[Rfam]
RNA: MAT2A 3'UTR stem loop D
Organism: Anguilla anguilla
RNA sequence: UCUGAAGCUCCGUGUGGAUACAGAGAAGCUGGAGCUUCAGA
Numbered sequence: 001u002c003u004g005a006a007g008c009u010c011c012g013u014g015u016g017g018a019u020a021c022a023g024a025g026a027a028g029c030u031g032g033a034g035c036u037u038c039a040g041a
Stems, first nucleotide, its partner, number of pairs: 001041008009032002012029002